[Rfam]
RNA: Small nucleolar RNA SNORA47
RNA sequence: UGGAGGAUUGAGAAGGUGGGGCAGCUUUGUACCAUGCUGUCUUCCACUGGUUAAGGCCUCCAAUAGCAAAGGACUGCCCAGGCAGAGGAUGUCCCUCCCUCUACCCCCUUUGGGGGCGGGGGGGUUGCAGCACUGUGCUGGCCAACAUUUG
Numbered sequence: 001u002g003g004a005g006g007a008u009u010g011a012g013a014a015g016g017u018g019g020g021g022c023a024g025c026u027u028u029g030u031a032c033c034a035u036g037c038u039g040u041c042u043u044c045c046a047c048u049g050g051u052u053a054a055g056g057c058c059u060c061c062a063a064u065a066g067c068a069a070a071g072g073a074c075u076g077c078c079c080a081g082g083c084a085g086a087g088g089a090u091g092u093c094c095c096u097c098c099c100u101c102u103a104c105c106c107c108c109u110u111u112g113g114g115g116g117c118g119g120g121g122g123g124g125u126u127g128c129a130g131c132a133c134u135g136u137g138c139u140g141g142c143c144a145a146c147a148u149u150u151g
Base pairs, nucleotide, nucleotide: 002061003060004059005058006057015048016047017046018045019042020041021040022039023038024037025036081143082142083141086139087138089136090135091134097130